[Rfam]
RNA sequence: CUGUCCACUGCAGCAUGGAAGACUAGUGAUUUUGUUGUUUUGUGCUUAAACUGACAACAGGUCACUGUCUCCCUCACUGCUUUGUGAC
Numbered sequence: 001c002u003g004u005c006c007a008c009u010g011c012a013g014c015a016u017g018g019a020a021g022a023c024u025a026g027u028g029a030u031u032u033u034g035u036u037g038u039u040u041u042g043u044g045c046u047u048a049a050a051c052u053g054a055c056a057a058c059a060g061g062u063c064a065c066u067g068u069c070u071c072c073c074u075c076a077c078u079g080c081u082u083u084g085u086g087a088c
Base pairs, nucleotide, nucleotide: 002087005084011079012078013077017073018072020070021069022068023067026065027064028063029062030061031060032059034058035057036056037055038054039053
The family of this 88-nucleotide sequence from Amphiprion percula is "mir-7 microRNA precursor family". On this family, see Lagos-Quintana et al., Science 2001: "Identification of novel genes coding for small expressed RNAs". This family represents the microRNA (miRNA) precursor mir-7.